RNA sequence: CAACCAUCCAGAGCGGCCGAGAGACCUGGCUCGACGACGCCGCAGCAACCCCCCGCAGCGCGGGCGCGGGUGCUACCGCCGGGAACGAUGGAGG
Number, nucleotide and partner (000 for none) at each position: 001c094002a000003a000004c091005c090006a089007u088008c087009c000010a000011g000012a000013g043014c042015g041016g040017c039018c000019g000020a000021g032022a031023g030024a000025c000026c082027u081028g080029g079030c023031u022032c021033g000034a000035c000036g000037a000038c000039g017040c016041c015042g014043c013044a074045g073046c072047a071048a000049c070050c069051c066052c000053c064054c063055g000056c000057a000058g000059c000060g000061c000062g000063g054064g053065c000066g051067c000068g000069g050070g049071u047072g046073c045074u044075a000076c000077c000078g086079c029080c028081g027082g026083g000084a000085a000086c078087g008088a007089u006090g005091g004092a000093g000094g001
RNA: SAM riboswitch aptamer (S box leader)